RNA sequence: UUCUUAUCAAGAGCAGGCGGAGGGACUGGCCCGAUGAAGCCCGGCAACCGACUCAUUAUGAGCACGGUGCUAAUUCUUGCAGCAGACGCUGGGAGAUAAGAU
Numbered sequence: 001u002u003c004u005u006a007u008c009a010a011g012a013g014c015a016g017g018c019g020g021a022g023g024g025a026c027u028g029g030c031c032c033g034a035u036g037a038a039g040c041c042c043g044g045c046a047a048c049c050g051a052c053u054c055a056u057u058a059u060g061a062g063c064a065c066g067g068u069g070c071u072a073a074u075u076c077u078u079g080c081a082g083c084a085g086a087c088g089c090u091g092g093g094a095g096a097u098a099a100g101a102u
Stems, first nucleotide, its partner, number of pairs: 002101007013042001016041003022032003026079001028077002043071004048067002050063001052062002075094001080091004
Background
Shown here is a 102-nucleotide sequence from Rossellomorea marisflavi, a member of the family "SAM riboswitch aptamer (S box leader)". The SAM riboswitch is found upstream of a number of genes which code for proteins involved in methionine or cysteine biosynthesis in Gram-positive bacteria. The SAM riboswitch acts at the level of transcription termination control. Clan: SAM clan.